[Rfam]
RNA sequence: GGGCAUCCAGCAGGAAUGAACCUAUGAAUUUGCCAAUUAUGAGUUGGGCUCUUAACCAUUCAGCCAUGGAUGC
Numbered sequence: 001g002g003g004c005a006u007c008c009a010g011c012a013g014g015a016a017u018g019a020a021c022c023u024a025u026g027a028a029u030u031u032g033c034c035a036a037u038u039a040u041g042a043g044u045u046g047g048g049c050u051c052u053u054a055a056c057c058a059u060u061c062a063g064c065c066a067u068g069g070a071u072g073c
Base pairs, nucleotide, nucleotide: 003073004072005071006070007069008068010025012023013022014021039067040066041065043064044063045062046061047060048059
Dot-bracket structure: ..((((((.(.(((......))).).............(((.((((((..........)))))))))))))))